mir-2944 microRNA precursor family: a 91-nucleotide sequence from Phyllotreta striolata. The organism belongs to Phyllotreta, within Eukaryota. Pairs were carried over by alignment from the consensus structure, which was predicted with RNAalifold. Rfam 15.1 lists 66 matches to the family in 42 species.
RNA sequence: GAGGGAAUCUGGCUUGAAGGAACUCCUGGUGUGAUAUGUAAUGUUACACGUCGUAUCACAGCCAGUAGUUACCUACGAAAUGGAUUCCCUU
Numbered sequence: 001g002a003g004g005g006a007a008u009c010u011g012g013c014u015u016g017a018a019g020g021a022a023c024u025c026c027u028g029g030u031g032u033g034a035u036a037u038g039u040a041a042u043g044u045u046a047c048a049c050g051u052c053g054u055a056u057c058a059c060a061g062c063c064a065g066u067a068g069u070u071a072c073c074u075a076c077g078a079a080a081u082g083g084a085u086u087c088c089c090u091u
Stems, first nucleotide, its partner, number of pairs: 003089009018074003021070004026065002028062001030060009
Its family is annotated with RISC complex and miRNA-mediated post-transcriptional gene silencing in the Gene Ontology.